[Rfam]
RNA sequence: GGACCACUCCUUACAGGAGUCGAGGCCAUACGGACAGCCGGGUCCACUGCCGA
Numbered sequence: 001g002g003a004c005c006a007c008u009c010c011u012u013a014c015a016g017g018a019g020u021c022g023a024g025g026c027c028a029u030a031c032g033g034a035c036a037g038c039c040g041g042g043u044c045c046a047c048u049g050c051c052g053a
Base pairs, nucleotide, nucleotide: 001045002044003043004042005041006020007019008018009017010016011015

A member of the RNA family "Streptococcus sRNA SpF59 (ldcC RNA)", 53 nucleotides long. Rfam's curators put it in the seed alignment. On this family, see Mann et al., PLoS Pathog 2012: "Control of virulence by small RNAs in Streptococcus pneumoniae".